[Rfam]
Rfam assigns this 128-nucleotide RNA sequence from Leiothrix lutea to the family "Small nucleolar RNA SNORA55".
ACA55 is a member of the H/ACA class of snoRNA that guide the sites of modification of uridines to pseudouridines.
The base pairs follow the family's consensus structure, which was predicted with PFOLD.
Gene Ontology terms of the family: RNA processing and nucleolus.

RNA sequence: GCACCAAAUCUUUCCCAUUCCUUACUGUGCAGUGUGGGCCUGGGGACACAUGGUGCUGACAGCAACGCAGAGCAAAUCCAGACAGGUGACUCUACAUGAGAACCUGUCUCUACACCUCUGCAACAAAG
Numbered sequence: 001g002c003a004c005c006a007a008a009u010c011u012u013u014c015c016c017a018u019u020c021c022u023u024a025c026u027g028u029g030c031a032g033u034g035u036g037g038g039c040c041u042g043g044g045g046a047c048a049c050a051u052g053g054u055g056c057u058g059a060c061a062g063c064a065a066c067g068c069a070g071a072g073c074a075a076a077u078c079c080a081g082a083c084a085g086g087u088g089a090c091u092c093u094a095c096a097u098g099a100g101a102a103c104c105u106g107u108c109u110c111u112a113c114a115c116c117u118c119u120g121c122a123a124c125a126a127a128g
Stems, first nucleotide, its partner, number of pairs: 001056005012046006020038002067121006080109008090100003